[Rfam]
The family of this 100-nucleotide RNA sequence from Lentibacillus sp. CBA3610 is "Purine riboswitch aptamer".
The family's consensus secondary structure is taken from published work.
The family is grouped with related families in Rfam's "Purine riboswitches".
About the family: Riboswitches are metabolite binding domains within certain messenger RNAs that serve as precision sensors for their corresponding targets.
NCBI's taxonomy places the organism under Bacteria, Bacillati, Bacilli, Caryophanales, Lentibacillus.

RNA sequence: UACCAAAUAAAUACGCUGCCUCAUAUAUUUUCGGGGAUAUGGCCUGAAAGUUUCUACCCGGCACCGUAAAUGCCGGACUAUGAGGGAGGAUGGGACGUAA
Numbered sequence: 001u002a003c004c005a006a007a008u009a010a011a012u013a014c015g016c017u018g019c020c021u022c023a024u025a026u027a028u029u030u031u032c033g034g035g036g037a038u039a040u041g042g043c044c045u046g047a048a049a050g051u052u053u054c055u056a057c058c059c060g061g062c063a064c065c066g067u068a069a070a071u072g073c074c075g076g077a078c079u080a081u082g083a084g085g086g087a088g089g090a091u092g093g094g095a096c097g098u099a100a
Stems, first nucleotide, its partner, number of pairs: 019085007029049007058076006
Rfam links the family to the GO term purine nucleobase biosynthetic process.